[Rfam]
Notes: T-box leader: a 216-nucleotide sequence from Ornithinibacillus halotolerans. The family's RNA type in Rfam is cis-regulatory leader. A search with the family's covariance model found it, with a score of 155 bits. Uncharged tRNA acts as the effector for transcription antitermination of genes in the T-box leader family. The base pairs follow the family's consensus structure, which is taken from published work.
RNA sequence: UUAAUAGUAAUGACAGGAAAUAGUAACAGUACCCUUUUCUUAAGAGAGUCGAUGGUUGGUGUGAAUCGAUGAAAAAAUACUGUGAAUCCAUCCUUGAACUGGUUUACGGAAAUAAAAGUAAGUAAACCCGGUACGAACCGUUAACACGUAUAAAGCCGGAAGAGAUUACUCUUCAACAAGGGUGGCAACGCGGGAAUUCAAACUCUCGUCCCUAAC
Numbered sequence: 001u002u003a004a005u006a007g008u009a010a011u012g013a014c015a016g017g018a019a020a021u022a023g024u025a026a027c028a029g030u031a032c033c034c035u036u037u038u039c040u041u042a043a044g045a046g047a048g049u050c051g052a053u054g055g056u057u058g059g060u061g062u063g064a065a066u067c068g069a070u071g072a073a074a075a076a077a078u079a080c081u082g083u084g085a086a087u088c089c090a091u092c093c094u095u096g097a098a099c100u101g102g103u104u105u106a107c108g109g110a111a112a113u114a115a116a117a118g119u120a121a122g123u124a125a126a127c128c129c130g131g132u133a134c135g136a137a138c139c140g141u142u143a144a145c146a147c148g149u150a151u152a153a154a155g156c157c158g159g160a161a162g163a164g165a166u167u168a169c170u171c172u173u174c175a176a177c178a179a180g181g182g183u184g185g186c187a188a189c190g191c192g193g194g195a196a197u198u199c200a201a202a203c204u205c206u207c208g209u210c211c212c213u214a215a216c
Stems, first nucleotide, its partner, number of pairs: 007099002015094004026083006037073003048070006102127006129140003159174006179213004190209005